[Rfam]
RNA sequence: AUAACCUUUAAAUGUGAUCCAGAGAGGUCAUUAAGGAAGACUAUAAAAUUUUUUCGUACAGUUGUACGAGUUUUUAAGUGUAAUCACGCCUUCCUUAAUUUUAGGGAAGGCUUUUUUAAU
Numbered sequence: 001a002u003a004a005c006c007u008u009u010a011a012a013u014g015u016g017a018u019c020c021a022g023a024g025a026g027g028u029c030a031u032u033a034a035g036g037a038a039g040a041c042u043a044u045a046a047a048a049u050u051u052u053u054u055c056g057u058a059c060a061g062u063u064g065u066a067c068g069a070g071u072u073u074u075u076a077a078g079u080g081u082a083a084u085c086a087c088g089c090c091u092u093c094c095u096u097a098a099u100u101u102u103a104g105g106g107a108a109g110g111c112u113u114u115u116u117u118a119a120u
Stems, first nucleotide, its partner, number of pairs: 005036004014031006046075003053070007086113001088111010
Dot-bracket structure: ....((((.....((((((......)))))).)))).........(((....(((((((....)))))))..)))..........(.((((((((((....)))))))))).).......
A member of the RNA family "PyrR binding site" from Clostridium frigidicarnis, 120 nucleotides long. On this family, see Bonner et al., Nucleic Acids Res 2001: "Molecular recognition of pyr mRNA by the Bacillus subtilis attenuation regulatory protein PyrR".